[Rfam]
RNA sequence: CAUUAAGGAUGGUCGACUAAGACCGUCCUUUGCGGACAACGUCGACAUACCCCUUGCCGGGGC
Numbered sequence: 001c002a003u004u005a006a007g008g009a010u011g012g013u014c015g016a017c018u019a020a021g022a023c024c025g026u027c028c029u030u031u032g033c034g035g036a037c038a039a040c041g042u043c044g045a046c047a048u049a050c051c052c053c054u055u056g057c058c059g060g061g062g063c
Stems, first nucleotide, its partner, number of pairs: 012046006025037003050062004
Description:
Rfam assigns this 63-nucleotide RNA sequence from Lentibacillus sp. JNUCC-1 to the family "Bacillaceae-1 RNA". NCBI's taxonomy places the organism under Bacteria, Bacillati, Bacillota, Bacillaceae, Lentibacillus. A search with the family's covariance model found it, with a score of 36 bits.